The family of this 78-nucleotide RNA sequence from Haemonchus placei is "SmY spliceosomal RNA". The base pairs follow the family's consensus structure, which is taken from published work. Rfam 15.1 lists 408 matches to the family in 67 species. The match comes from Rfam's covariance-model search (66 bits). The family's RNA type in Rfam is spliceosomal small nuclear RNA.

RNA sequence: UGAAACCUUGAAUAUAUUGCAGGGCCUUUAAUAAGACCCAAUGCACAAUUUUUGUAGACCCUUGCAGGAGCAAGGGUA
Numbered sequence: 001u002g003a004a005a006c007c008u009u010g011a012a013u014a015u016a017u018u019g020c021a022g023g024g025c026c027u028u029u030a031a032u033a034a035g036a037c038c039c040a041a042u043g044c045a046c047a048a049u050u051u052u053u054g055u056a057g058a059c060c061c062u063u064g065c066a067g068g069a070g071c072a073a074g075g076g077u078a
Base pairs, nucleotide, nucleotide: 022039023038024037026035027034028033058077059076060075061074062073063072064071065070